[Rfam]
The family of this 215-nucleotide sequence from Miscanthus lutarioriparius is "MIR6217 microRNA precursor family". A search with the family's covariance model found it, with a score of 144 bits. Rfam 15.1 lists 2,266 matches to the family in 13 species. The base pairs follow the family's consensus structure, which was predicted with RNAalifold.
RNA sequence: UGGUUAUAAAAUAACUUAUUUUAUGGUCACUUUGAGUUACGAUAAUUACUAUGCUAAUUCACAAGAUUAUAGUAACUCUUACUAUAACGUUAUGGUAAAUAUCCUCAUGUGUUAUAGUAACACAACUAUCGUAAAUAUGUAUUCACUUUAUGGUAAAUUAGUAUAUAAAAUUAUCGUAAAUGGAGGUGGCUACAGAAUAACUUAUUCUAUGGCCA
Numbered sequence: 001u002g003g004u005u006a007u008a009a010a011a012u013a014a015c016u017u018a019u020u021u022u023a024u025g026g027u028c029a030c031u032u033u034g035a036g037u038u039a040c041g042a043u044a045a046u047u048a049c050u051a052u053g054c055u056a057a058u059u060c061a062c063a064a065g066a067u068u069a070u071a072g073u074a075a076c077u078c079u080u081a082c083u084a085u086a087a088c089g090u091u092a093u094g095g096u097a098a099a100u101a102u103c104c105u106c107a108u109g110u111g112u113u114a115u116a117g118u119a120a121c122a123c124a125a126c127u128a129u130c131g132u133a134a135a136u137a138u139g140u141a142u143u144c145a146c147u148u149u150a151u152g153g154u155a156a157a158u159u160a161g162u163a164u165a166u167a168a169a170a171u172u173a174u175c176g177u178a179a180a181u182g183g184a185g186g187u188g189g190c191u192a193c194a195g196a197a198u199a200a201c202u203u204a205u206u207c208u209a210u211g212g213c214c215a
Stems, first nucleotide, its partner, number of pairs: 001215008010206005016200007024192010037179011050165010061154002066151002069148001072144001074142001079124001080119011094104002